[Rfam]
RNA sequence: AUCAUACAUAAAAAUUGAGCCAAUAUAUGCCCGAUGCAGAUGGUUCGGGUGUCUCUACCGCACGGCCGGAUGUGCGACUAUUGGUAUUGCUUUUCGUCCC
Numbered sequence: 001a002u003c004a005u006a007c008a009u010a011a012a013a014a015u016u017g018a019g020c021c022a023a024u025a026u027a028u029g030c031c032c033g034a035u036g037c038a039g040a041u042g043g044u045u046c047g048g049g050u051g052u053c054u055c056u057a058c059c060g061c062a063c064g065g066c067c068g069g070a071u072g073u074g075c076g077a078c079u080a081u082u083g084g085u086a087u088u089g090c091u092u093u094u095c096g097u098c099c100c
Stems, first nucleotide, its partner, number of pairs: 019085007029050006059076006
Dot-bracket structure: ..................(((((((...((((((..........))))))........((((((......))))))..)))))))...............

The family of this 100-nucleotide RNA sequence from Clostridium sp. CAG:448 is "Purine riboswitch aptamer".
From the family's description: Riboswitches are metabolite binding domains within certain messenger RNAs that serve as precision sensors for their corresponding targets.
The organism belongs to Clostridium, within Bacteria.
The family's consensus secondary structure is taken from published work.
The match comes from Rfam's covariance-model search (47 bits).